[Rfam]
RNA sequence: GCAAUGCAAAACGUUCUAUCGCUGCUUUGCUUUCGGGCGGGCGGAGGAAAGUCCGGGCAACACAGAGCAUCCUGCUUCCUAACGGGAAGGCACCGUACCAGCCGGUGACAGCAAGUGCCACAGAAAAUAUACCGCCCCAACUUGUUGGGGUAAGGGUGAAAACGUGAGGUAAGAGCUCACGGCAUUACCGGGCGACCGGGAUGGCGGUAAACCUCAGGAGUUGAAAAACCAAAUAGGUCCUGAAUUUAAAGCUGCUCGCUUUUAUAUGUUAUUGAGUAACAUGGUCAGGAUGGGUAGGUUGUUAGAGCCUGGCAGCAAUGUUCAGGAACAGAUUAAUGAUAGAAAGUGCCCACCAGGGCAACACAGAACCCGGCUUACAGCUUUGCUGCUGGU
Number, nucleotide and partner (000 for none) at each position: 001g389002c388003a387004a000005u000006g386007c385008a384009a383010a382011a000012c380013g378014u344015u343016c342017u341018a340019u339020c338021g000022c044023u043024g042025c041026u040027u039028u000029g038030c037031u000032u000033u000034c000035g000036g000037g030038c029039g027040g026041g025042c024043g023044g022045a000046g000047g000048a000049a376050a375051g374052u000053c373054c372055g371056g370057g369058c223059a222060a221061c220062a000063c000064a000065g000066a000067g000068c000069a000070u219071c218072c217073u216074g215075c089076u088077u087078c086079c085080u000081a000082a000083c000084g000085g079086g078087a077088a076089g075090g109091c107092a106093c105094c104095g000096u000097a000098c000099c000100a000101g000102c000103c000104g094105g093106u092107g091108a000109c090110a214111g213112c000113a000114a000115g212116u211117g208118c207119c206120a000121c000122a000123g000124a000125a000126a000127a000128u000129a000130u000131a000132c155133c154134g151135c150136c149137c148138c147139a146140a145141c000142u000143u000144g000145u140146u139147g138148g137149g136150g135151u134152a000153a000154g133155g132156g000157u000158g000159a000160a000161a000162a000163c181164g180165u179166g178167a177168g176169g000170u000171a000172a000173g000174a000175g000176c168177u167178c166179a165180c164181g163182g205183c203184a202185u201186u200187a000188c199189c198190g197191g196192g000193c000194g000195a000196c191197c190198g189199g188200g186201a185202u184203g183204g000205c182206g119207g118208u117209a000210a000211a116212c115213c111214u110215c074216a073217g072218g071219a070220g061221u060222u059223g058224a000225a000226a000227a300228a299229c298230c297231a000232a000233a000234u000235a000236g000237g291238u290239c289240c288241u287242g286243a000244a000245u000246u000247u000248a000249a000250a000251g000252c000253u000254g000255c000256u000257c000258g000259c000260u000261u000262u000263u000264a000265u000266a000267u000268g000269u279270u278271a277272u000273u000274g000275a000276g000277u271278a270279a269280c000281a000282u000283g000284g000285u000286c242287a241288g240289g239290a238291u237292g000293g000294g000295u000296a000297g230298g229299u228300u227301g000302u000303u000304a000305g000306a000307g000308c326309c325310u324311g323312g321313c320314a319315g000316c000317a000318a000319u314320g313321u312322u000323c311324a310325g309326g308327a000328a000329c000330a000331g000332a000333u000334u000335a000336a000337u000338g020339a019340u018341a017342g016343a015344a014345a000346g000347u000348g000349c000350c000351c000352a000353c000354c000355a000356g000357g000358g000359c000360a000361a000362c000363a000364c000365a000366g000367a000368a000369c057370c056371c055372g054373g053374c051375u050376u049377a000378c013379a000380g012381c000382u010383u009384u008385g007386c006387u003388g002389c001390u000391g000392g000393u000

This 393-nucleotide RNA from Mucilaginibacter polytrichastri belongs to the Rfam family "Bacterial RNase P class A".
Taxonomically the source falls in Mucilaginibacter (Bacteria, Bacteroidota, Sphingobacteriales, Sphingobacteriaceae).
The base pairs follow the family's consensus structure, which is taken from published work.
The family's RNA type in Rfam is ribozyme.